[Rfam]
chrB-a RNA: an 83-nucleotide sequence from Stappia sediminis. A search with the family's covariance model found it, with a score of 49 bits.
RNA sequence: CGCAAGGGGUCAAUCGCGACCACCCCGUGAGGCGGCAGCCCAAGGUUCGCGUUCCAUCACUCGCAUUCGAGGGGACACCUCUG
Numbered sequence: 001c002g003c004a005a006g007g008g009g010u011c012a013a014u015c016g017c018g019a020c021c022a023c024c025c026c027g028u029g030a031g032g033c034g035g036c037a038g039c040c041c042a043a044g045g046u047u048c049g050c051g052u053u054c055c056a057u058c059a060c061u062c063g064c065a066u067u068c069g070a071g072g073g074g075a076c077a078c079c080u081c082u083g
Stems, first nucleotide, its partner, number of pairs: 006026005049078001051076004